[Rfam]
RNA sequence: GGAUCAUACUUUGUGUUUUCUCGUAUAACGCCGGGAAUAUGGCCCGGAAGUAUCUACCCAAGAACCUUAAAUUUUUGGACUACGAGCUAACCUGUUGGUGGA
Numbered sequence: 001g002g003a004u005c006a007u008a009c010u011u012u013g014u015g016u017u018u019u020c021u022c023g024u025a026u027a028a029c030g031c032c033g034g035g036a037a038u039a040u041g042g043c044c045c046g047g048a049a050g051u052a053u054c055u056a057c058c059c060a061a062g063a064a065c066c067u068u069a070a071a072u073u074u075u076u077g078g079a080c081u082a083c084g085a086g087c088u089a090a091c092c093u094g095u096u097g098g099u100g101g102a
Stems, first nucleotide, its partner, number of pairs: 020086006031047005058078007

Rfam assigns this 102-nucleotide RNA sequence from Paenibacillus ginsengarvi to the family "Purine riboswitch aptamer". About the family: Riboswitches are metabolite binding domains within certain messenger RNAs that serve as precision sensors for their corresponding targets. The match comes from Rfam's covariance-model search (76 bits).